[Rfam]
Shown here is an 88-nucleotide RNA from Sinocyclocheilus rhinocerous, a member of the family "mir-135 microRNA precursor family". The source organism's lineage runs through Eukaryota, Chordata, Actinopteri, Teleostei and Sinocyclocheilus. Its family is annotated with RISC complex and gene silencing by miRNA in the Gene Ontology. The family has 88 seed sequences and 2,125 matches in Rfam 15.1.

RNA sequence: UCACUUCUGUGUUUUAUGGCUUUCUAUUCCUAUGUGAUUUUCUUCUGCCAUGUCACAUAGGCUUCAAAGCCAUUGGGUACAGAGUGGA
Numbered sequence: 001u002c003a004c005u006u007c008u009g010u011g012u013u014u015u016a017u018g019g020c021u022u023u024c025u026a027u028u029c030c031u032a033u034g035u036g037a038u039u040u041u042c043u044u045c046u047g048c049c050a051u052g053u054c055a056c057a058u059a060g061g062c063u064u065c066a067a068a069g070c071c072a073u074u075g076g077g078u079a080c081a082g083a084g085u086g087g088a
Base pairs, nucleotide, nucleotide: 002087005084006083007082008081009080010079011078012077013076014075016073017072018071019070020069021068022067023066026064029061030060031059032058033057034056035055036054037053